[Rfam]
RNA: mir-9256 microRNA precursor family
Organism: Cnephaeus nilssonii
RNA sequence: GCAUACACUGCGUGGCCAGAUUAUUAUGGUCUUUGAACACAUAAUAAUCUGGCCACUCAGUGUAUAU
Number, nucleotide and partner (000 for none) at each position: 001g000002c000003a000004u064005a063006c062007a061008c060009u059010g058011c000012g056013u055014g054015g053016c052017c051018a000019g049020a048021u047022u046023a045024u044025u043026a042027u041028g040029g000030u000031c000032u000033u000034u000035g000036a000037a000038c000039a000040c028041a027042u026043a025044a024045u023046a022047a021048u020049c019050u000051g017052g016053c015054c014055a013056c012057u000058c010059a009060g008061u007062g006063u005064a004065u000066a000067u000